[Rfam]
Shown here is a 317-nucleotide RNA from Haloarcula pellucida, a member of the family "Archaeal signal recognition particle RNA". The source organism's lineage runs through Archaea, Methanobacteriota, Halobacteria, Haloarculaceae and Haloarcula. Its Rfam clan is "SRP clan". For this family Rfam cites "Towards the structure of the mammalian signal recognition particle" (Wild et al., Curr Opin Struct Biol, 2002).
RNA sequence: AAGUGGACUAGGUCGGGGGGCUUGGCCCCCCUCCUCGCCCGCACUGUGGUCAUGAGCGGGGACCGAACCCCGGGGGCGUCCGGUCAGACGGACGUGGACCCCGUGAGCCAACGUAGAAGCCUCGUCCCACGGGGACGGCGGUCCACGUGGUCGCAUCUGCAGGGAUGCGCCCACGUGGUUAGUCGAUGGCAGCCCGUCAGGCACGGAAGUGAGCAGCGGACCAUCGAACACCCGUCGCUCGUGGGGUCGCGGGGUGGAGGAGGCAAACGGGAUUACCCACGCCCGAACGCCGGGCAAUCUCGGCUGUCCGUCCAUUC
Numbered sequence: 001a002a003g004u005g006g007a008c009u010a011g012g013u014c015g016g017g018g019g020g021c022u023u024g025g026c027c028c029c030c031c032u033c034c035u036c037g038c039c040c041g042c043a044c045u046g047u048g049g050u051c052a053u054g055a056g057c058g059g060g061g062a063c064c065g066a067a068c069c070c071c072g073g074g075g076g077c078g079u080c081c082g083g084u085c086a087g088a089c090g091g092a093c094g095u096g097g098a099c100c101c102c103g104u105g106a107g108c109c110a111a112c113g114u115a116g117a118a119g120c121c122u123c124g125u126c127c128c129a130c131g132g133g134g135a136c137g138g139c140g141g142u143c144c145a146c147g148u149g150g151u152c153g154c155a156u157c158u159g160c161a162g163g164g165a166u167g168c169g170c171c172c173a174c175g176u177g178g179u180u181a182g183u184c185g186a187u188g189g190c191a192g193c194c195c196g197u198c199a200g201g202c203a204c205g206g207a208a209g210u211g212a213g214c215a216g217c218g219g220a221c222c223a224u225c226g227a228a229c230a231c232c233c234g235u236c237g238c239u240c241g242u243g244g245g246g247u248c249g250c251g252g253g254g255u256g257g258a259g260g261a262g263g264c265a266a267a268c269g270g271g272a273u274u275a276c277c278c279a280c281g282c283c284c285g286a287a288c289g290c291c292g293g294g295c296a297a298u299c300u301c302g303g304c305u306g307u308c309c310g311u312c313c314a315u316u317c
Stems, first nucleotide, its partner, number of pairs: 002316007011064004015033006038060005044054001067307002070303006078295004082290001089285003093281005100271005107264003112259001114257001119255007126245008134236005140229001141180001143178008152169007183227007194219004202211003